Shown here is a 123-nucleotide RNA from Salmonella enterica, a member of the family "EFASI RNA". By type it is a small RNA.

[Rfam]
RNA sequence: UCGUUCUGAAGUCGGAAGGCGUCAUCGUAAGAUGACAGGGAGUAAAAAAUCGCCCUGGUGCACAGGUAGCGAACUCCUGUAAAAACUCAACAUGUGCAAGCUCUGCUACAUCGACAUCAAACG
Numbered sequence: 001u002c003g004u005u006c007u008g009a010a011g012u013c014g015g016a017a018g019g020c021g022u023c024a025u026c027g028u029a030a031g032a033u034g035a036c037a038g039g040g041a042g043u044a045a046a047a048a049a050u051c052g053c054c055c056u057g058g059u060g061c062a063c064a065g066g067u068a069g070c071g072a073a074c075u076c077c078u079g080u081a082a083a084a085a086c087u088c089a090a091c092a093u094g095u096g097c098a099a100g101c102u103c104u105g106c107u108a109c110a111u112c113g114a115c116a117u118c119a120a121a122c123g
Stems, first nucleotide, its partner, number of pairs: 002123004007119003011115004021036005038078004050072004054066004